[Rfam]
The record is an 87-nucleotide sequence from Chauna torquata, which matches "mir-191 microRNA precursor family" in Rfam. NCBI's taxonomy places the organism under Eukaryota, Gnathostomata, Sarcopterygii, Anseriformes, Chauna. A reference for the family is Kim et al. (2004), "Identification of many microRNAs that copurify with polyribosomes in mammalian neurons", Proc Natl Acad Sci U S A. It scores 55 bits against the family's covariance model.
RNA sequence: GGCGGGAGCGCGGGUAACGAAAUCCCAGGGCAGCUGGGCGCAGCGGGGACAGCUGCUUUUGGGAUUCCGUUGCCCGCGCCGACGCCA
Numbered sequence: 001g002g003c004g005g006g007a008g009c010g011c012g013g014g015u016a017a018c019g020a021a022a023u024c025c026c027a028g029g030g031c032a033g034c035u036g037g038g039c040g041c042a043g044c045g046g047g048g049a050c051a052g053c054u055g056c057u058u059u060u061g062g063g064a065u066u067c068c069g070u071u072g073c074c075c076g077c078g079c080c081g082a083c084g085c086c087a
Stems, first nucleotide, its partner, number of pairs: 009078005017070003021066003024062002027059001030056007